The record is a 176-nucleotide RNA sequence from Solanum commersonii, which matches "MIR168 microRNA precursor family" in Rfam.
[Rfam]
RNA sequence: UUUGCGGCCGCCUCUUAUUCGCUUGGUGCAGGUCGGGACCUCAUUCGCCGGCGCCGGAAAUAAUGACGGACGACGGCGGUGUUAAUUCUACUAAGUUGUCAACGACGAAUAUAUUUUGAUUAGCGGCGAAAUUUGGGUCCUGCCUUGCAUCAACUGAAUUGGAGACAGCUGUGAAU
Numbered sequence: 001u002u003u004g005c006g007g008c009c010g011c012c013u014c015u016u017a018u019u020c021g022c023u024u025g026g027u028g029c030a031g032g033u034c035g036g037g038a039c040c041u042c043a044u045u046c047g048c049c050g051g052c053g054c055c056g057g058a059a060a061u062a063a064u065g066a067c068g069g070a071c072g073a074c075g076g077c078g079g080u081g082u083u084a085a086u087u088c089u090a091c092u093a094a095g096u097u098g099u100c101a102a103c104g105a106c107g108a109a110u111a112u113a114u115u116u117u118g119a120u121u122a123g124c125g126g127c128g129a130a131a132u133u134u135g136g137g138u139c140c141u142g143c144c145u146u147g148c149a150u151c152a153a154c155u156g157a158a159u160u161g162g163a164g165a166c167a168g169c170u171g172u173g174a175a176u
Base pairs, nucleotide, nucleotide: 013163014162017159018158019157020156023153024152025151026150027149028148029147030146031145032144034142035141036140037139038138040136041135

Pairs were carried over by alignment from the consensus structure, which was predicted with WAR. The family has 10 seed sequences and 518 matches in Rfam 15.1. Its family is annotated with RISC complex and miRNA-mediated post-transcriptional gene silencing in the Gene Ontology. Taxonomically the source falls in Solanum (Eukaryota, Viridiplantae, Streptophyta, Magnoliopsida).